A member of the RNA family "Small nucleolar RNA SNORD113/SNORD114 family" from Eschrichtius robustus, 75 nucleotides long. The family has 59 seed sequences and 5,721 matches in Rfam 15.1. The literature on the family includes a 2002 paper in Hum Mol Genet by Cavaille et al., "Identification of tandemly-repeated C/D snoRNA genes at the imprinted human 14q32 domain reminiscent of those at the Prader-Willi/Angelman syndrome region". The organism belongs to Eschrichtius, within Eukaryota. The base pairs follow the family's consensus structure, which is taken from published work.

[Rfam]
RNA sequence: UGGAUCGAUGAUGAGAAAUGCCAGCGUAUGAGUCAUCGAUGACGAAUAAUACGUGUCUGGAACUCUGAGGUCCAA
Numbered sequence: 001u002g003g004a005u006c007g008a009u010g011a012u013g014a015g016a017a018a019u020g021c022c023a024g025c026g027u028a029u030g031a032g033u034c035a036u037c038g039a040u041g042a043c044g045a046a047u048a049a050u051a052c053g054u055g056u057c058u059g060g061a062a063c064u065c066u067g068a069g070g071u072c073c074a075a
Base pairs, nucleotide, nucleotide: 002073003072004071005070006069